[Rfam]
RNA sequence: CACCGACAUCAGCGACUCGUUUUGAGAGCCUUGUCCCACGGCUAGAUAGGCGUUCAUCCCCAGCUCUUUCAUCUGCUGUUCGCCGAUGACGCGGGUGGUGACGUGGCCGUAGGCGUCAGCCAACUGACGGGCUUGCGAUGCCAGAUAGGCGGCGUUGCAGAUAUUAGGCGGCAUGUUGCCGAGGUCUUUGGC
Numbered sequence: 001c002a003c004c005g006a007c008a009u010c011a012g013c014g015a016c017u018c019g020u021u022u023u024g025a026g027a028g029c030c031u032u033g034u035c036c037c038a039c040g041g042c043u044a045g046a047u048a049g050g051c052g053u054u055c056a057u058c059c060c061c062a063g064c065u066c067u068u069u070c071a072u073c074u075g076c077u078g079u080u081c082g083c084c085g086a087u088g089a090c091g092c093g094g095g096u097g098g099u100g101a102c103g104u105g106g107c108c109g110u111a112g113g114c115g116u117c118a119g120c121c122a123a124c125u126g127a128c129g130g131g132c133u134u135g136c137g138a139u140g141c142c143a144g145a146u147a148g149g150c151g152g153c154g155u156u157g158c159a160g161a162u163a164u165u166a167g168g169c170g171g172c173a174u175g176u177u178g179c180c181g182a183g184g185u186c187u188u189u190g191g192c
Stems, first nucleotide, its partner, number of pairs: 005186003012032001014030001016028003020024001033043001035041001050059001062077003078132005084126002087123001091120002094117004099109002102106001133160003137156006164183002167180003

The record is a 192-nucleotide RNA sequence from Lonsdalea quercina, which matches "Yersinia sRNA 276" in Rfam. The literature on the family includes a 2015 paper in PLoS Genet by Nuss et al., "Transcriptomic profiling of Yersinia pseudotuberculosis reveals reprogramming of the Crp regulon by temperature and uncovers Crp as a master regulator of small RNAs". NCBI's taxonomy places the organism under Bacteria, Pseudomonadota, Gammaproteobacteria, Enterobacterales, Lonsdalea.